[Rfam]
RNA sequence: AACUUAUAAUUGCUCCGAGCUAUGUUAUCUAAGGUAGCAGCUAUGAUAGCCUGGCCGAUAGGGUUUGUCGGGAAACCGGCGGGCCUCCCAAUGCGGAAAGGAGUACAGUAUGUGCUUGG
Number, nucleotide and partner (000 for none) at each position: 001a000002a000003c000004u112005u000006a000007u000008a000009a000010u000011u105012g104013c103014u102015c101016c100017g000018a000019g055020c054021u053022a052023u000024g050025u049026u048027a047028u046029c045030u000031a000032a000033g042034g041035u040036a000037g000038c000039a000040g035041c034042u033043a000044u000045g029046a028047u027048a026049g025050c024051c000052u022053g021054g020055c019056c000057g000058a000059u000060a000061g086062g085063g084064u083065u082066u081067g080068u079069c078070g077071g076072g000073a000074a000075a000076c071077c070078g069079g068080c067081g066082g065083g064084c063085c062086u061087c096088c095089c000090a000091a000092u000093g000094c000095g088096g087097a000098a000099a000100g016101g015102a014103g013104u012105a011106c000107a000108g000109u000110a000111u000112g004113u000114g000115c000116u000117u000118g000119g000
RNA: Molybdenum/Tungsten riboswitch aptamer (Moco RNA motif)
Organism: Desulfoscipio gibsoniae